Record summary:
Xanthomonadaceae sRNA Xoo5: a 124-nucleotide RNA sequence from Pseudoxanthomonas taiwanensis. By type it is a small RNA. A search with the family's covariance model found it, with a score of 110 bits.

RNA sequence: CCAUGAACACCGACCUGCAGCCGCACGCCGCCAGCGCCGCCCGGAUGGCCUCCGGGAUGACCUCGCGCGCGCGCCGACCGGAAUCCUGCUUUCCUGCUGGGUGACCGGAGUGCCGUGCUGUCCG
Numbered sequence: 001c002c003a004u005g006a007a008c009a010c011c012g013a014c015c016u017g018c019a020g021c022c023g024c025a026c027g028c029c030g031c032c033a034g035c036g037c038c039g040c041c042c043g044g045a046u047g048g049c050c051u052c053c054g055g056g057a058u059g060a061c062c063u064c065g066c067g068c069g070c071g072c073g074c075c076g077a078c079c080g081g082a083a084u085c086c087u088g089c090u091u092u093c094c095u096g097c098u099g100g101g102u103g104a105c106c107g108g109a110g111u112g113c114c115g116u117g118c119u120g121u122c123c124g
Stems, first nucleotide, its partner, number of pairs: 032120005038112003041108002043079002046076004055070001058067002080106002085101004089096001